[Rfam]
RNA sequence: ACCUUUUAUUCGCUGAAUCAGUAAUGAGCGGGGGAACCAAUUCGGAUAGCAGCCGCUAUCCUGGGGUGAAUCUUACAUUUGUAAGAAGGGAUACUCUUAGUCCCUAAUCCGACAGCUAACCUCGUAAGCGUUGACUCCAUUAAGA
Dot-bracket structure: ..........((((...(((....)))((((((....((......................))(((.....((((......))))..((((.........))))...))).........)))))).))))...............
RNA: c-di-AMP riboswitch aptamer (ydaO/yuaA leader)
Organism: Planococcus halotolerans